[Rfam]
RNA sequence: CGGCUGUAGCUAUAUAGAUCAUCGAAGCUUUACUGGCCGGUGGUUGUUAAUUUCCGUCAACCUAUCUGCUUACCGAGCUUCUCACAUCC
Numbered sequence: 001c002g003g004c005u006g007u008a009g010c011u012a013u014a015u016a017g018a019u020c021a022u023c024g025a026a027g028c029u030u031u032a033c034u035g036g037c038c039g040g041u042g043g044u045u046g047u048u049a050a051u052u053u054c055c056g057u058c059a060a061c062c063u064a065u066c067u068g069c070u071u072a073c074c075g076a077g078c079u080u081c082u083c084a085c086a087u088c089c
Stems, first nucleotide, its partner, number of pairs: 024081006035070003039066004043061004
Notes:
Shown here is an 89-nucleotide sequence from Actinidia chinensis, a member of the family "Small nucleolar RNA snoR109". The base pairs follow the family's consensus structure, which was predicted with WAR. The source organism's lineage runs through Eukaryota, Viridiplantae, Magnoliopsida, Mesangiospermae and Actinidia chinensis. A reference for the family is Marker et al. (2002), "Experimental RNomics: identification of 140 candidates for small non-messenger RNAs in the plant Arabidopsis thaliana", Curr Biol.